The record is a 78-nucleotide RNA from Microcaecilia unicolor, which matches "Mammalian CPEB3 ribozyme" in Rfam. Rfam's curators write: The mammalian CPEB3 ribozyme is a self cleaving RNA located in the second intron of the CPEB3 gene which belongs to a family of genes regulating messenger RNA polyadenylation. Gene Ontology term of the family: RNA nuclease activity. The family's consensus secondary structure is taken from published work.
RNA sequence: AGCCCAGUUCCAGGAGCCACUGCAGCAGUGUUCACACCAGGGUUAUCAUCAGAUUCCUAUGAAUCUGUGAAUUCUGCU
Numbered sequence: 001a002g003c004c005c006a007g008u009u010c011c012a013g014g015a016g017c018c019a020c021u022g023c024a025g026c027a028g029u030g031u032u033c034a035c036a037c038c039a040g041g042g043u044u045a046u047c048a049u050c051a052g053a054u055u056c057c058u059a060u061g062a063a064u065c066u067g068u069g070a071a072u073u074c075u076g077c078u
Stems, first nucleotide, its partner, number of pairs: 013046001015044004022077004027072001029039002050067007